[Rfam]
RNA sequence: UACUCGAAAAGGCAAAUUUGGUGAAAGCCAAAGACGCAAAGUUACCGGUCUACGGGCAUAGCCUAAGACAGCGGGACUACCGAA
Numbered sequence: 001u002a003c004u005c006g007a008a009a010a011g012g013c014a015a016a017u018u019u020g021g022u023g024a025a026a027g028c029c030a031a032a033g034a035c036g037c038a039a040a041g042u043u044a045c046c047g048g049u050c051u052a053c054g055g056g057c058a059u060a061g062c063c064u065a066a067g068a069c070a071g072c073g074g075g076a077c078u079a080c081c082g083a084a
Stems, first nucleotide, its partner, number of pairs: 012037002017032006040078004045074003048069003055063003
Shown here is an 84-nucleotide RNA sequence from Thalassotalea sp. LPB0316, a member of the family "c-di-GMP-I riboswitch aptamer". Gene Ontology term of the family: cyclic-di-GMP binding. Lineage of the source: Bacteria > Pseudomonadota > Gammaproteobacteria > Colwelliaceae > Thalassotalea. The match comes from Rfam's covariance-model search (80 bits). The base pairs follow the family's consensus structure, which is taken from published work.